[Rfam]
RNA sequence: CGGGGCCCGAGCACUGAGGGAAGCUGUACCUCCUUGCAAAGGACUAGAGGUUAGAGGAGACCCCCCGCAAACA
Numbered sequence: 001c002g003g004g005g006c007c008c009g010a011g012c013a014c015u016g017a018g019g020g021a022a023g024c025u026g027u028a029c030c031u032c033c034u035u036g037c038a039a040a041g042g043a044c045u046a047g048a049g050g051u052u053a054g055a056g057g058a059g060a061c062c063c064c065c066c067g068c069a070a071a072c073a
Stems, first nucleotide, its partner, number of pairs: 001067005006042002013035001016032003020029001049062004
Shown here is a 73-nucleotide RNA from Orthoflavivirus denguei, a member of the family "Flavivirus DB element". The source organism's lineage runs through Viruses, Riboviria, Flasuviricetes, Amarillovirales and Dengue virus. By type it is a cis-regulatory element. Rfam's curators write: This family represents the flavivirus 3' UTR elements DB1 and DB2. On this family, see Chiu et al., J Virol 2005: "Control of translation by the 5'- and 3'-terminal regions of the dengue virus genome".